Rfam assigns this 205-nucleotide RNA from Oryza glumipatula to the family "MIR812 microRNA precursor family". Gene Ontology terms of the family: RISC complex and miRNA-mediated post-transcriptional gene silencing. It scores 119 bits against the family's covariance model. Pairs were carried over by alignment from the consensus structure, which was predicted with RNAalifold.
[Rfam]
RNA sequence: UAUAAGUGCAGUUGUGGGUUUCAGUAUCUAAUGUUUGACCGUUUGUCUUAUUUAAAAAAAUUGUGAAAAUACUAAAAAAAUAGUCACACAUUAAUUAAUAUUUAUAUUUUAUCAUCUAAUAACAAUAAAAAUACUAAUUAUAUAUAUAUUGUAAGUAAGACGGACGAUUAAACAUUGGAUACGGGAACCCGUAACUACACUUAUA
Numbered sequence: 001u002a003u004a005a006g007u008g009c010a011g012u013u014g015u016g017g018g019u020u021u022c023a024g025u026a027u028c029u030a031a032u033g034u035u036u037g038a039c040c041g042u043u044u045g046u047c048u049u050a051u052u053u054a055a056a057a058a059a060a061u062u063g064u065g066a067a068a069a070u071a072c073u074a075a076a077a078a079a080a081u082a083g084u085c086a087c088a089c090a091u092u093a094a095u096u097a098a099u100a101u102u103u104a105u106a107u108u109u110u111a112u113c114a115u116c117u118a119a120u121a122a123c124a125a126u127a128a129a130a131a132u133a134c135u136a137a138u139u140a141u142a143u144a145u146a147u148a149u150u151g152u153a154a155g156u157a158a159g160a161c162g163g164a165c166g167a168u169u170a171a172a173c174a175u176u177g178g179a180u181a182c183g184g185g186a187a188c189c190c191g192u193a194a195c196u197a198c199a200c201u202u203a204u205a
Base pairs, nucleotide, nucleotide: 027179028178029177030176031175032174034172035171036170037169038168040166041165042164043163044162045161046160047159048158049157050156051155